[Rfam]
RNA sequence: GUGUAGGGCUCUAUCACUACGGAUCGUCCGGCACGUACCUGCCGGUGAGGAGAAAAAAU
Numbered sequence: 001g002u003g004u005a006g007g008g009c010u011c012u013a014u015c016a017c018u019a020c021g022g023a024u025c026g027u028c029c030g031g032c033a034c035g036u037a038c039c040u041g042c043c044g045g046u047g048a049g050g051a052g053a054a055a056a057a058a059u
Stems, first nucleotide, its partner, number of pairs: 010051003014048003028045006